Lysine riboswitch aptamer: a 188-nucleotide RNA sequence from Aneurinibacillus danicus. Taxonomically the source falls in Aneurinibacillus (Bacteria, Bacillati, Bacilli, Paenibacillaceae). Gene Ontology term of the family: lysine biosynthetic process. About the family: Riboswitches are metabolite binding domains within certain messenger RNAs that serve as precision sensors for their corresponding targets. Allosteric rearrangement of mRNA structure is mediated by ligand binding, and this results in modulation of gene expression. This family includes riboswitches that sense lysine in a number of genes involved in lysine metabolism, including lysC. The match comes from Rfam's covariance-model search (115 bits).
Nucleotides: 188
Base pairs, nucleotide, nucleotide: 006183007182008181009180010179011178017085018084019083020082021081023079024078025077033070034069035068036067037066038065039064089118090117091116092115093114094113095112096111097110098109099108119146120145123142124141125140126139128137129136148173149172150171151170152169153168154167155166156165
Number, partner (000 for none) and nucleotide at each position: 001000c002000g003000a004000u005000g006183g007182g008181g009180u010179a011178g012000a013000g014000g015000u016000c017085g018084c019083g020082g021081u022000u023079g024078c025077u026000a027000g028000g029000a030000g031000u032000a033070u034069g035068g036067u037066g038065a039064a040000g041000g042000a043000g044000g045000c046000g047000c048000a049000g050000a051000g052000a053000a054000c055000g056000c057000c058000c059000g060000g061000g062000a063000a064039u065038u066037c067036a068035c069034u070033g071000g072000a073000a074000a075000g076000g077025a078024g079023c080000u081021a082020c083019c084018g085017c086000c087000g088000a089118a090117g091116u092115c093114u094113g095112u096111g097110u098109g099108c100000a101000u102000c103000u104000c105000u106000g107000g108099g109098c110097g111096c112095g113094c114093g115092g116091g117090c118089u119146g120145g121000g122000g123142c124141c125140g126139u127000c128137u129136c130000c131000g132000a133000a134000u135000a136129g137128g138000a139126a140125c141124g142123g143000a144000a145120c146119u147000g148173u149172c150171a151170u152169a153168u154167c155166u156165g157000c158000a159000u160000c161000c162000g163000c164000g165156c166155a167154g168153a169152u170151a171150u172149g173148g174000u175000g176000u177000g178011c179010u180009a181008u182007c183006u184000u185000c186000a187000u188000g